Rfam assigns this 91-nucleotide RNA sequence to the family "skipping-rope RNA". It is annotated as a small RNA. The family's consensus secondary structure is taken from published work.
RNA sequence: UAAGAAUGAGGAUAGAGAAGCAAAAGCAAGUGACACUAUCACACCUUUUAGGUCAAAAGAGAUGUUGGGACAGUCACACCAGCCAUUCUCA
Dot-bracket structure: (.((((((..(((((..............[[[[[.))))).(((((...)))).....)....(((((....]]]]].))))))))))).)